[Rfam]
RNA sequence: AUGGCCGUUGCGGGAGAGUCCGGCGGUUCAUCCCGUCGGCGCCGAAGGAGCAACCGCGCCCCGGAACCUCUCAGGCACACGGACCGCGACGGCCGG
Numbered sequence: 001a002u003g004g005c006c007g008u009u010g011c012g013g014g015a016g017a018g019u020c021c022g023g024c025g026g027u028u029c030a031u032c033c034c035g036u037c038g039g040c041g042c043c044g045a046a047g048g049a050g051c052a053a054c055c056g057c058g059c060c061c062c063g064g065a066a067c068c069u070c071u072c073a074g075g076c077a078c079a080c081g082g083a084c085c086g087c088g089a090c091g092g093c094c095g096g
Stems, first nucleotide, its partner, number of pairs: 006091008020039004041076003044072002048070003054064002

The record is a 96-nucleotide RNA from Limimonas halophila, which matches "Glycine riboswitch aptamer" in Rfam. Lineage of the source: Bacteria > Pseudomonadati > Alphaproteobacteria > Rhodospirillales > Limimonas. It scores 71 bits against the family's covariance model.